[Rfam]
RNA sequence: CACCGGCCGUCCGGUGAGGCCUCUCCCCGCGAGGUCUGGCGCACUUCCCCGGCGCCAGAACGCGGAGGGAGACCUGGCCGGACGGCCCCGCUCGC
Numbered sequence: 001c002a003c004c005g006g007c008c009g010u011c012c013g014g015u016g017a018g019g020c021c022u023c024u025c026c027c028c029g030c031g032a033g034g035u036c037u038g039g040c041g042c043a044c045u046u047c048c049c050c051g052g053c054g055c056c057a058g059a060a061c062g063c064g065g066a067g068g069g070a071g072a073c074c075u076g077g078c079c080g081g082a083c084g085g086c087c088c089c090g091c092u093c094g095c
Stems, first nucleotide, its partner, number of pairs: 010082006018074002021071005027065004033061001035059008
Notes:
The family of this 95-nucleotide RNA from Myceligenerans xiligouense is "mraW RNA". It scores 56 bits against the family's covariance model. By type it is a cis-regulatory element.